The family of this 85-nucleotide sequence from Trichoplusia ni is "mir-927 microRNA precursor family". The base pairs follow the family's consensus structure, which was predicted with RNAalifold.
RNA sequence: AUCCUGUGUUUUUGCUUUAGAAUUCCUACGCUUUACCGUUGCCAAGAUGUUGGGCAAAGCGUUUGGAUUCUAAAACGAAAUAACG
Dot-bracket structure: .........(((.(.((((((.(((..(((((((.((...............)).)))))))..))).)))))).))))......

On this family, see Berezikov et al., Nat Genet 2010: "Evolutionary flux of canonical microRNAs and mirtrons in Drosophila". The organism belongs to Trichoplusia, within Eukaryota.